Shown here is a 192-nucleotide sequence from Glycomyces buryatensis, a member of the family "c-di-AMP riboswitch aptamer (ydaO/yuaA leader)". Taxonomically the source falls in Glycomyces (Bacteria, Bacillati, Actinomycetes, Glycomycetaceae).
[Rfam]
RNA sequence: GACUCGUCCACGCCUGAGCGCGGACCGGGAACCCACCGCUUUGGAGACUCGAAAGAGUCGGCGUGUCAGACGCCUCCCCCCAGAUCCGACGCACGGGGUGAAUCCCGCCUGGGCCUUCGGGCCGCGGCGGGUAGGGCGCUCUUCCCAGCCCGAACCCGACAGCUAACCCGGUAGGCGGACGAGGAAGAAAGG
Numbered sequence: 001g002a003c004u005c006g007u008c009c010a011c012g013c014c015u016g017a018g019c020g021c022g023g024a025c026c027g028g029g030a031a032c033c034c035a036c037c038g039c040u041u042u043g044g045a046g047a048c049u050c051g052a053a054a055g056a057g058u059c060g061g062c063g064u065g066u067c068a069g070a071c072g073c074c075u076c077c078c079c080c081c082a083g084a085u086c087c088g089a090c091g092c093a094c095g096g097g098g099u100g101a102a103u104c105c106c107g108c109c110u111g112g113g114c115c116u117u118c119g120g121g122c123c124g125c126g127g128c129g130g131g132u133a134g135g136g137c138g139c140u141c142u143u144c145c146c147a148g149c150c151c152g153a154a155c156c157c158g159a160c161a162g163c164u165a166a167c168c169c170g171g172u173a174g175g176c177g178g179a180c181g182a183g184g185a186a187g188a189a190a191g192g
Base pairs, nucleotide, nucleotide: 004023005022006021024172025171026170027169028168029167034095096157097156098155104131105130106129107128108127109126134151135150136149137148